[Rfam]
RNA sequence: CAGCACUCCGCGUAGGAGUAUACUGGACUACACGCUCUGGUGCCAAGACGUAUGGUGACAUCGUUAUAAAAUCUUUUGCCUAGACUCGUUCUAGAGCAGAUAAGACAACCUCAACAGAAAUGAAGAGGUGGUG
Numbered sequence: 001c002a003g004c005a006c007u008c009c010g011c012g013u014a015g016g017a018g019u020a021u022a023c024u025g026g027a028c029u030a031c032a033c034g035c036u037c038u039g040g041u042g043c044c045a046a047g048a049c050g051u052a053u054g055g056u057g058a059c060a061u062c063g064u065u066a067u068a069a070a071a072u073c074u075u076u077u078g079c080c081u082a083g084a085c086u087c088g089u090u091c092u093a094g095a096g097c098a099g100a101u102a103a104g105a106c107a108a109c110c111u112c113a114a115c116a117g118a119a120a121u122g123a124a125g126a127g128g129u130g131g132u133g
Base pairs, nucleotide, nucleotide: 005019006018007017008016009015047065048064049063050062053060054059075100076099077098078097079096080094081093082092083091084090108129109128110127111126112125115122116121
Rfam assigns this 133-nucleotide RNA to the family "RT-11 RNA". The base pairs follow the family's consensus structure, which is taken from published work.